[Rfam]
Y RNA: a 102-nucleotide RNA from Cebus imitator. The family's consensus secondary structure is taken from published work. It is annotated as a non-coding RNA gene. It scores 74 bits against the family's covariance model. Lineage of the source: Eukaryota > Gnathostomata > Tetrapoda > Boreoeutheria > Cebus.

RNA sequence: GGCUGGUCCGAGUGCAGUGGUGUUUAUAGCUACUUGAUCAUAACCAGUUACAGAUUUCUUUGCUCCUUCUCCAUGUCCACUGCUUCACCUGACUAGCCUUAA
Number, nucleotide and partner (000 for none) at each position: 001g098002g097003c096004u095005g094006g093007u092008c091009c000010g090011a000012g000013u000014g086015c000016a081017g080018u079019g078020g077021u000022g000023u000024u000025u000026a000027u000028a064029g063030c062031u000032a060033c000034u000035u000036g000037a000038u000039c000040a000041u000042a000043a000044c000045c000046a000047g000048u000049u000050a000051c000052a000053g000054a000055u000056u000057u000058c000059u000060u032061u000062g030063c029064u028065c000066c000067u000068u000069c000070u000071c000072c000073a000074u000075g000076u000077c020078c019079a018080c017081u016082g000083c000084u000085u000086c014087a000088c000089c000090u010091g008092a007093c006094u005095a004096g003097c002098c001099u000100u000101a000102a000